[Rfam]
RNA sequence: GCUGAGCCAGGUAGCGUGGGCUUGUAACCCAAGUGGGAGCUUCAAGGUGGUGGAAUGUUGACUCAGCUCCGAAGGCUGGGUUCGGACCAGCUUGAUUCUGACCUGUCCGUUUCAAGCCACGAGUUGAACCAUCGCAUCCUAGUGAAGGUGUCCGUUUCAAGCCACGAGUUGAACCAUCGCAUCCUAGUGAAGACAUGGUUGCCAUGGUUCCUAGAGCGGAGGGCACAGCGUGAGGCUGGUUUCACAGAGCAGCGAUCACCUCCCUCUCUUGGCAGUGAAAGGAUAACUGGUCGGUGCUGUCCGAAGCCAUAUGAUAUGGCUUAAUGGGCUGGUCUAAUUGGACUAUCACUUUU
Numbered sequence: 001g002c003u004g005a006g007c008c009a010g011g012u013a014g015c016g017u018g019g020g021c022u023u024g025u026a027a028c029c030c031a032a033g034u035g036g037g038a039g040c041u042u043c044a045a046g047g048u049g050g051u052g053g054a055a056u057g058u059u060g061a062c063u064c065a066g067c068u069c070c071g072a073a074g075g076c077u078g079g080g081u082u083c084g085g086a087c088c089a090g091c092u093u094g095a096u097u098c099u100g101a102c103c104u105g106u107c108c109g110u111u112u113c114a115a116g117c118c119a120c121g122a123g124u125u126g127a128a129c130c131a132u133c134g135c136a137u138c139c140u141a142g143u144g145a146a147g148g149u150g151u152c153c154g155u156u157u158c159a160a161g162c163c164a165c166g167a168g169u170u171g172a173a174c175c176a177u178c179g180c181a182u183c184c185u186a187g188u189g190a191a192g193a194c195a196u197g198g199u200u201g202c203c204a205u206g207g208u209u210c211c212u213a214g215a216g217c218g219g220a221g222g223g224c225a226c227a228g229c230g231u232g233a234g235g236c237u238g239g240u241u242u243c244a245c246a247g248a249g250c251a252g253c254g255a256u257c258a259c260c261u262c263c264c265u266c267u268c269u270u271g272g273c274a275g276u277g278a279a280a281g282g283a284u285a286a287c288u289g290g291u292c293g294g295u296g297c298u299g300u301c302c303g304a305a306g307c308c309a310u311a312u313g314a315u316a317u318g319g320c321u322u323a324a325u326g327g328g329c330u331g332g333u334c335u336a337a338u339u340g341g342a343c344u345a346u347c348a349c350u351u352u353u
Stems, first nucleotide, its partner, number of pairs: 001040003004023005010017001028037003044352010056340002058337003061333002064331006073322005078308002081305006088299003092296001098294006105287002107282002110280005116273004121268003126210007134202003138198002142194002211216001218263005227256001229254003236247003
Shown here is a 353-nucleotide sequence from Populus alba, a member of the family "Plant signal recognition particle RNA". The organism belongs to Populus, within Eukaryota. Pairs were carried over by alignment from the consensus structure, which is taken from published work.